[Rfam]
About this RNA
This 139-nucleotide RNA sequence from Roseibium sp. RKSG952 belongs to the Rfam family "Alphaproteobacterial sRNA BjrC1505". Taxonomically the source falls in Roseibium (Bacteria, Pseudomonadati, Alphaproteobacteria, Stappiaceae). The family's RNA type in Rfam is small RNA. It scores 110 bits against the family's covariance model. The base pairs follow the family's consensus structure.
RNA sequence: UAUUGAUUAACCCAUUUUUAAUUAUUUUAAAUCAUAACAAUAGUCAUCCAGUCAUCUGGAUCUUGAGUGGCUCCUGUCCACUCUGUUUGACGCCUCCCUGUUAAAGACUUAGAGCCACGGUUGCCGUGGCUCUUUUUUU
Numbered sequence: 001u002a003u004u005g006a007u008u009a010a011c012c013c014a015u016u017u018u019u020a021a022u023u024a025u026u027u028u029a030a031a032u033c034a035u036a037a038c039a040a041u042a043g044u045c046a047u048c049c050a051g052u053c054a055u056c057u058g059g060a061u062c063u064u065g066a067g068u069g070g071c072u073c074c075u076g077u078c079c080a081c082u083c084u085g086u087u088u089g090a091c092g093c094c095u096c097c098c099u100g101u102u103a104a105a106g107a108c109u110u111a112g113a114g115c116c117a118c119g120g121u122u123g124c125c126g127u128g129g130c131u132c133u134u135u136u137u138u139u
Stems, first nucleotide, its partner, number of pairs: 001042004005012001019034001021032003046061004065083006089102004111133010